[Rfam]
Rfam assigns this 177-nucleotide sequence from Sphingomonas sp. Root710 to the family "Manganese Mn2+ riboswitch aptamer (yybP-ykoY)".
Pairs were carried over by alignment from the consensus structure.
About the family: This RNA was originally discovered in E. coli during a large scale screen and was named SraF. The family was later found to exist upstream of related families of protein genes in many bacteria, including the the yybP and ykoK genes in B. subtilis. The specific functions of these proteins are unknown, but this structured RNA element may be involved in their genetic regulation as a riboswitch.

RNA sequence: GCACCCGUCAUCCGGGGAGUAGCCGGCCGUUCCGCACCGAACGGGAAUCGCGUCAACAUACUUGGGGGAGACCUCAUGGCGCGAUCAGGGUCCGAAAGACCUUGGCGAGACCGAUGACACCUGACCUCGCCUGCCGGGCGGGGGUCAUGGUGUCGUCCGUCACUGCCUGCCCGGCCC
Number, nucleotide and partner (000 for none) at each position: 001g000002c000003a000004c000005c000006c000007g000008u000009c000010a000011u000012c000013c000014g000015g000016g000017g000018a000019g000020u000021a000022g000023c000024c000025g000026g000027c044028c043029g042030u000031u000032c000033c000034g000035c000036a000037c000038c000039g000040a000041a000042c029043g028044g027045g000046a000047a085048u084049c083050g082051c081052g080053u079054c078055a077056a000057c000058a000059u000060a000061c000062u000063u076064g075065g074066g073067g072068g000069a000070g000071a000072c067073c066074u065075c064076a063077u055078g054079g053080c052081g051082c050083g049084a048085u047086c000087a000088g000089g177090g176091u000092c174093c173094g000095a000096a000097a000098g000099a000100c000101c000102u000103u000104g000105g000106c000107g000108a000109g000110a000111c000112c000113g000114a000115u000116g000117a000118c000119a000120c000121c000122u000123g000124a000125c000126c000127u000128c000129g000130c000131c000132u000133g000134c000135c000136g000137g000138g000139c000140g000141g000142g000143g000144g000145u000146c000147a000148u000149g000150g000151u000152g000153u000154c000155g000156u000157c000158c000159g000160u000161c000162a000163c000164u000165g000166c000167c000168u000169g000170c000171c000172c000173g093174g092175c000176c090177c089
A reference for the family is Dambach et al. (2015), "The ubiquitous yybP-ykoY riboswitch is a manganese-responsive regulatory element", Mol Cell. Rfam links the family to the GO term manganese ion binding.